[Rfam]
RNA sequence: UAAUAUUUGCGGGGGGACUAUAAAUAGUUGAGAAGGUAAACCUGACCCUUUGAACCUGUUGGUUAAUACCGACGUAGGGAAGCAAAUCACUUACAUUA
Numbered sequence: 001u002a003a004u005a006u007u008u009g010c011g012g013g014g015g016g017a018c019u020a021u022a023a024a025u026a027g028u029u030g031a032g033a034a035g036g037u038a039a040a041c042c043u044g045a046c047c048c049u050u051u052g053a054a055c056c057u058g059u060u061g062g063u064u065a066a067u068a069c070c071g072a073c074g075u076a077g078g079g080a081a082g083c084a085a086a087u088c089a090c091u092u093a094c095a096u097u098a
Stems, first nucleotide, its partner, number of pairs: 006086005011049004016043001017028004035042002055078004059072004
TPP riboswitch aptamer (THI element): a 98-nucleotide RNA sequence from Tissierella sp. P1. It scores 67 bits against the family's covariance model. The family's consensus secondary structure is taken from published work.